This 81-nucleotide RNA from Capitella teleta belongs to the Rfam family "mir-242_2 microRNA precursor family". Rfam links the family to the GO terms RISC complex and miRNA-mediated post-transcriptional gene silencing. Rfam's curators put it in the seed alignment.
RNA sequence: UAACCAUAGAUUUGCGUAGGUGUUGUGCACAGAGGUGUUACAUAAUAGUCUGUCCAUGACGCCUAGGCAUACCCGUGGUUG
Dot-bracket structure: ..(((((.(...(((.(.((.(..(((.(((((...............))))).)))..).)).).)))...).)))))..
Numbered sequence: 001u002a003a004c005c006a007u008a009g010a011u012u013u014g015c016g017u018a019g020g021u022g023u024u025g026u027g028c029a030c031a032g033a034g035g036u037g038u039u040a041c042a043u044a045a046u047a048g049u050c051u052g053u054c055c056a057u058g059a060c061g062c063c064u065a066g067g068c069a070u071a072c073c074c075g076u077g078g079u080u081g
Stems, first nucleotide, its partner, number of pairs: 003079005009073001013069003017065001019063002022060001025057003029053005

Record summary
Taxonomically the source falls in Capitella (Eukaryota, Opisthokonta, Protostomia, Sedentaria).